transfer-messenger RNA: a 352-nucleotide RNA from Citrifermentans bemidjiense. By type it is a non-coding RNA gene.
[Rfam]
RNA sequence: GGGGGUGUAAAGGUUUCGACGGGGGUAAUAAGCAAAGGUUGCAUGCCGAGGUCCGGGUGGCUCGUUAAACAAUCCGGGACGCAUUUAAGCGCCGACAAUUACGAUUACGCUUUAGCAGCUUAAUAACCUGCUAACGUUCUACCUGCCUUCUCCCACGGGGGAGGAUAGAACGUCAUUCAGUGGGAUAGUUUCAGGGAGAGUCCGUGGCCCUGCGGCGAAAUCAAGCGGAAUCGCCGAUCAGAAAUCCCGGCCUGUGGAGUUCUGAGAGGUUAAAUUAAAAACAGGUAUAAGCAUGUAGACGCCUUUAGUGUACGACUUUCGGACGCGGGUUCGAUUCCCGCCACCUCCACCA
Number, nucleotide and partner (000 for none) at each position: 001g348002g347003g346004g345005g344006u343007g342008u000009a000010a000011a000012g000013g000014u000015u000016u000017c000018g000019a000020c321021g320022g319023g318024g317025g316026u315027a000028a000029u312030a000031a309032g000033c000034a306035a305036a304037g303038g302039u301040u000041g000042c295043a294044u293045g292046c291047c064048g063049a062050g061051g000052u078053c077054c076055g075056g074057g073058u072059g000060g000061c050062u049063c048064g047065u000066u000067a000068a000069a000070c000071a000072a058073u057074c056075c055076g054077g053078g052079a000080c000081g000082c000083a000084u000085u000086u000087a000088a000089g000090c000091g000092c000093c000094g000095a000096c000097a000098a000099u000100u000101a000102c000103g000104a000105u000106u000107a000108c000109g000110c000111u000112u134113u133114a132115g131116c130117a129118g128119c000120u000121u000122a000123a000124u000125a000126a000127c000128c118129u117130g116131c115132u114133a113134a112135c172136g171137u170138u169139c168140u167141a000142c000143c164144u163145g000146c161147c160148u159149u000150c000151u185152c184153c183154c182155a181156c180157g000158g000159g148160g147161g146162a000163g144164g143165a000166u000167a140168g139169a138170a137171c136172g135173u000174c000175a000176u000177u000178c000179a000180g156181u155182g154183g153184g152185a151186u000187a000188g216189u215190u214191u000192c212193a211194g210195g209196g208197a000198g000199a000200g231201u230202c000203c228204g000205u000206g000207g000208c196209c195210c194211u193212g192213c000214g190215g189216c188217g000218a000219a000220a000221u000222c000223a000224a000225g000226c000227g000228g203229a000230a201231u200232c000233g270234c269235c268236g000237a000238u265239c264240a263241g262242a261243a000244a000245u258246c257247c256248c000249g000250g286251c285252c284253u000254g282255u281256g247257g246258a245259g000260u000261u242262c241263u240264g239265a238266g000267a000268g235269g234270u233271u000272a000273a000274a000275u000276u000277a000278a000279a000280a000281a255282c254283a000284g252285g251286u250287a000288u000289a000290a000291g046292c045293a044294u043295g042296u000297a000298g000299a000300c000301g039302c038303c037304u036305u035306u034307a000308g000309u031310g000311u000312a029313c000314g000315a026316c025317u024318u023319u022320c021321g020322g000323a000324c000325g341326c340327g339328g338329g337330u000331u000332c000333g000334a000335u000336u000337c329338c328339c327340g326341c325342c007343a006344c005345c004346u003347c002348c001349a000350c000351c000352a000

Source information
The organism belongs to Citrifermentans bemidjiense, within Bacteria. A search with the family's covariance model found it, with a score of 214 bits. The base pairs follow the family's consensus structure, which is taken from published work.